RNA sequence: CACUGACAUCAGGGACUCAUUUUGCGAGCCAGCGCCGACCGCCAGGUAAGCAUUCAUGCCAAGCUCUUUCAUCUGCUGUUCGCCGAUGACGCGGGUGCUGAUAUUCUUAUUGAAACUGUCAGCCAACUGACGCGCCUGGGAAGCCAGAUAGGCCGGAUUACAGAUAUUUGGCGGCAUAUUGCCCAGAUCUUUUGC
Numbered sequence: 001c002a003c004u005g006a007c008a009u010c011a012g013g014g015a016c017u018c019a020u021u022u023u024g025c026g027a028g029c030c031a032g033c034g035c036c037g038a039c040c041g042c043c044a045g046g047u048a049a050g051c052a053u054u055c056a057u058g059c060c061a062a063g064c065u066c067u068u069u070c071a072u073c074u075g076c077u078g079u080u081c082g083c084c085g086a087u088g089a090c091g092c093g094g095g096u097g098c099u100g101a102u103a104u105u106c107u108u109a110u111u112g113a114a115a116c117u118g119u120c121a122g123c124c125a126a127c128u129g130a131c132g133c134g135c136c137u138g139g140g141a142a143g144c145c146a147g148a149u150a151g152g153c154c155g156g157a158u159u160a161c162a163g164a165u166a167u168u169u170g171g172c173g174g175c176a177u178a179u180u181g182c183c184c185a186g187a188u189c190u191u192u193u194g195c
Stems, first nucleotide, its partner, number of pairs: 005189002014030001016028003020024001034042002050059002062077003078135002081132002084129002087126001091123002094120004099112005136163003140159002144155001167186002170183003
The family of this 195-nucleotide RNA sequence from Izhakiella capsodis is "Yersinia sRNA 276". For this family Rfam cites "Transcriptomic profiling of Yersinia pseudotuberculosis reveals reprogramming of the Crp regulon by temperature and uncovers Crp as a master regulator of small RNAs" (Nuss et al., PLoS Genet, 2015). Rfam classes the family as an antisense RNA. Pairs were carried over by alignment from the consensus structure, which was predicted with RNAfold.